[Rfam]
RNA sequence: CUCUUAUCCAGAGAGGUGGAGGGACCGGCCCAUCGAAACCUCGGCAACCUGAUUAAUUUCAAGGUGCCAAAUCCGGCAGAAGAAAGAAAAUCUGGAAGAUAGGAG
Number, nucleotide and partner (000 for none) at each position: 001c105002u104003c103004u102005u101006a100007u099008c098009c000010a000011g000012a000013g042014a041015g040016g039017u038018g000019g000020a000021g031022g030023g029024a000025c076026c075027g074028g073029c023030c022031c021032a000033u000034c000035g000036a000037a000038a017039c016040c015041u014042c013043g068044g067045c066046a065047a000048c064049c063050u061051g060052a059053u000054u000055a000056a000057u000058u000059u052060c051061a050062a000063g049064g048065u046066g045067c044068c043069a000070a000071a000072u097073c028074c027075g026076g025077c094078a093079g092080a091081a000082g000083a000084a000085a000086g000087a000088a000089a000090a000091u080092c079093u078094g077095g000096a000097a072098g008099a007100u006101a005102g004103g003104a002105g001
The record is a 105-nucleotide RNA sequence from Flexilinea flocculi, which matches "SAM riboswitch aptamer (S box leader)" in Rfam. Taxonomically the source falls in Flexilinea (Bacteria, Anaerolineae, Anaerolineales, Anaerolineaceae). The family's consensus secondary structure is taken from published work. The SAM riboswitch is found upstream of a number of genes which code for proteins involved in methionine or cysteine biosynthesis in Gram-positive bacteria.